This 81-nucleotide RNA sequence from Candidatus Vecturithrix granuli belongs to the Rfam family "c-di-GMP-I-GGC riboswitch aptamer". It scores 70 bits against the family's covariance model. For this family Rfam cites "Bioinformatic analysis of riboswitch structures uncovers variant classes with altered ligand specificity" (Weinberg et al., Proc Natl Acad Sci U S A, 2017). Its Rfam clan is "c-di-GMP_I riboswitch clan". Rfam links the family to the GO term cyclic-di-GMP binding. The source organism's lineage runs through Bacteria, Candidatus Vecturitrichia, Candidatus Vecturitrichales, Candidatus Vecturitrichaceae and Candidatus Vecturithrix.

RNA sequence: AUAGAAAAAGCCAAACUCACUGUGAGGUGAGGGCGGAAAACCACGGGUCCCUUAGAAAUUUGGAUAGCCGGGUUGCCUAAA
Numbered sequence: 001a002u003a004g005a006a007a008a009a010g011c012c013a014a015a016c017u018c019a020c021u022g023u024g025a026g027g028u029g030a031g032g033g034c035g036g037a038a039a040a041c042c043a044c045g046g047g048u049c050c051c052u053u054a055g056a057a058a059u060u061u062g063g064a065u066a067g068c069c070g071g072g073u074u075g076c077c078u079a080a081a
Base pairs, nucleotide, nucleotide: 003078004077011036012035016031017030018029019028020027021026034067039074040073041072042071044070045069046068047065048064049063